[Rfam]
RNA: Plastid-rps12 3UTR RNA
Organism: Thalassia hemprichii
RNA sequence: GGUUUCUAUUGGUGCAAAUCCAAUCGCCUUGAUUUGGGAUGAGAAGCAAUUCCCCAUUGGUAGCAAAUCCAAUGGUUAUCCACUAAGCGGGGAAAAUG
Numbered sequence: 001g002g003u004u005u006c007u008a009u010u011g012g013u014g015c016a017a018a019u020c021c022a023a024u025c026g027c028c029u030u031g032a033u034u035u036g037g038g039a040u041g042a043g044a045a046g047c048a049a050u051u052c053c054c055c056a057u058u059g060g061u062a063g064c065a066a067a068u069c070c071a072a073u074g075g076u077u078a079u080c081c082a083c084u085a086a087g088c089g090g091g092g093a094a095a096a097u098g
Stems, first nucleotide, its partner, number of pairs: 009023004052092004057082001059080006